[Rfam]
RNA sequence: CUGCAGCCAAUUAAGCCGACCGGGUCCUUUUCCCCAUGGGGGCCCGGUGUGCACUGGCUGCAAACAGCAGCCUCCUUGGUAGUGUAUGCAGCCUGUUGCUUGUAUGGGUUGCCCUAAGGGACCUUGGAGACAGCC
Numbered sequence: 001c002u003g004c005a006g007c008c009a010a011u012u013a014a015g016c017c018g019a020c021c022g023g024g025u026c027c028u029u030u031u032c033c034c035c036a037u038g039g040g041g042g043c044c045c046g047g048u049g050u051g052c053a054c055u056g057g058c059u060g061c062a063a064a065c066a067g068c069a070g071c072c073u074c075c076u077u078g079g080u081a082g083u084g085u086a087u088g089c090a091g092c093c094u095g096u097u098g099c100u101u102g103u104a105u106g107g108g109u110u111g112c113c114c115u116a117a118g119g120g121a122c123c124u125u126g127g128a129g130a131c132a133g134c135c
Stems, first nucleotide, its partner, number of pairs: 002053004019048004025042004078123003089111006
RNA: Small nucleolar RNA SNORA70